RNA sequence: CUCUGGAAAGCAUUUGAUGCACCGAAGAAGUAAUCCCGCGCGGCGUUUGUGUCGCUGGGAGCAUCUUUCAGGUACCGGGACAGAG
Numbered sequence: 001c002u003c004u005g006g007a008a009a010g011c012a013u014u015u016g017a018u019g020c021a022c023c024g025a026a027g028a029a030g031u032a033a034u035c036c037c038g039c040g041c042g043g044c045g046u047u048u049g050u051g052u053c054g055c056u057g058g059g060a061g062c063a064u065c066u067u068u069c070a071g072g073u074a075c076c077g078g079g080a081c082a083g084a085g
Base pairs, nucleotide, nucleotide: 001085002084003083004082005081011019012018013017021073022072023071024069025068028067029066030065034060035059036058037057038056
A member of the RNA family "Glycine riboswitch aptamer" from Sporobacter termitidis, 85 nucleotides long. This family represents the bacterial glycine riboswitch. Glycine riboswitches usually consist of two metabolite-binding aptamers domains with similar structures in tandem.